A member of the RNA family "mir-34 microRNA precursor family" from Stegodyphus mimosarum, 74 nucleotides long. Its Rfam clan is "mir-34 clan". A reference for the family is Houbaviy et al. (2003), "Embryonic stem cell-specific MicroRNAs", Dev Cell. About the family: Human mir-34a was discovered computationally and later experimentally verified. The mature sequence is excised from the 5' arm of the hairpin.
[Rfam]
RNA sequence: CUGGUUCUGGCAGUGUGGUUAGCUGGUUGUUUACGUAUAGUAAUUACAACCACUAUCUUCCCUGCCCCAAGUGG
Numbered sequence: 001c002u003g004g005u006u007c008u009g010g011c012a013g014u015g016u017g018g019u020u021a022g023c024u025g026g027u028u029g030u031u032u033a034c035g036u037a038u039a040g041u042a043a044u045u046a047c048a049a050c051c052a053c054u055a056u057c058u059u060c061c062c063u064g065c066c067c068c069a070a071g072u073g074g
Base pairs, nucleotide, nucleotide: 002073003072005070006069009066010065012063013062015060017058018057020055021054022053024052025051026050027049028048029047030046